A member of the RNA family "BsrC" from Paenibacillus sp. UNCCL117, 88 nucleotides long. About the family: The 301 nucleotide sequence from Kouji Nakamura has been trimmed to a highly conserved ~85 nucleotide long core to form this family. It scores 78 bits against the family's covariance model.
[Rfam]
RNA sequence: UGCAACUAAAACAACGAAAGCCCUGCCUCUCUUCCAUCCUUGCGGCUCCGAAGACCGCGCCAGUGUGAAUCAGUUAAACCGCCAUGAA
Numbered sequence: 001u002g003c004a005a006c007u008a009a010a011a012c013a014a015c016g017a018a019a020g021c022c023c024u025g026c027c028u029c030u031c032u033u034c035c036a037u038c039c040u041u042g043c044g045g046c047u048c049c050g051a052a053g054a055c056c057g058c059g060c061c062a063g064u065g066u067g068a069a070u071c072a073g074u075u076a077a078a079c080c081g082c083c084a085u086g087a088a
Stems, first nucleotide, its partner, number of pairs: 035067002039063002041059005047053001